Overview
The family of this 110-nucleotide RNA sequence from Helicobacter monodelphidis is "Bacterial antisense RNA HPnc0260". The family's consensus secondary structure was predicted with CMfinder.
[Rfam]
RNA sequence: AGCUAAAUAAUGGCUAAAGCCUAACUAAUAUACCUAAGGAAUAUAAAAGGCUGAAUAAGUAAAACAAAGAAUGGUGGCCACGAUUGGACUUGAACCAACGACCACUACCA
Number, nucleotide and partner (000 for none) at each position: 001a000002g014003c013004u012005a011006a000007a000008u000009a000010a000011u005012g004013g003014c002015u000016a000017a000018a000019g000020c000021c000022u000023a000024a000025c039026u038027a000028a000029u000030a000031u000032a000033c000034c000035u000036a000037a000038g026039g025040a000041a000042u000043a000044u000045a000046a000047a000048a000049g000050g000051c000052u000053g000054a000055a000056u000057a000058a000059g000060u000061a000062a000063a000064a000065c000066a000067a000068a000069g000070a000071a000072u107073g106074g105075u104076g103077g102078c000079c000080a000081c100082g099083a000084u098085u097086g096087g095088a000089c000090u000091u000092g000093a000094a000095c087096c086097a085098a084099c082100g081101a000102c077103c076104a075105c074106u073107a072108c000109c000110a000
NCBI's taxonomy places the organism under Bacteria, Pseudomonadati, Campylobacterota, Campylobacterales, Helicobacter.